Lysine riboswitch aptamer: a 195-nucleotide sequence from Serratia odorifera. It scores 93 bits against the family's covariance model. The family's consensus secondary structure is taken from published work. Rfam describes the family as follows. Riboswitches are metabolite binding domains within certain messenger RNAs that serve as precision sensors for their corresponding targets. NCBI's taxonomy places the organism under Bacteria, Pseudomonadati, Pseudomonadota, Enterobacterales, Serratia odorifera.

[Rfam]
RNA sequence: CAAGCCAGAAGAGGCGCGUCACCCAGGUAGAGUGUCAGAGGAGCCGUUUUCCACAGACGGCACUGGAGGGGGAGUGACGCCGAGAUACGCUGCAUCGCGGCAUGCGGUAUAUCGACUACAGGGGCUGAAUCCCUUGGGUUGUCACCAUGGUCGCCCUGUUCGGGGCGGUCAACAAGGUGGGGCGCUUCUGGGUGU
Numbered sequence: 001c002a003a004g005c006c007a008g009a010a011g012a013g014g015c016g017c018g019u020c021a022c023c024c025a026g027g028u029a030g031a032g033u034g035u036c037a038g039a040g041g042a043g044c045c046g047u048u049u050u051c052c053a054c055a056g057a058c059g060g061c062a063c064u065g066g067a068g069g070g071g072g073a074g075u076g077a078c079g080c081c082g083a084g085a086u087a088c089g090c091u092g093c094a095u096c097g098c099g100g101c102a103u104g105c106g107g108u109a110u111a112u113c114g115a116c117u118a119c120a121g122g123g124g125c126u127g128a129a130u131c132c133c134u135u136g137g138g139u140u141g142u143c144a145c146c147a148u149g150g151u152c153g154c155c156c157u158g159u160u161c162g163g164g165g166c167g168g169u170c171a172a173c174a175a176g177g178u179g180g181g182g183c184g185c186u187u188c189u190g191g192g193u194g195u
Stems, first nucleotide, its partner, number of pairs: 006190006016080007024072001031064006084113004089108007114140004119136006142180005148174001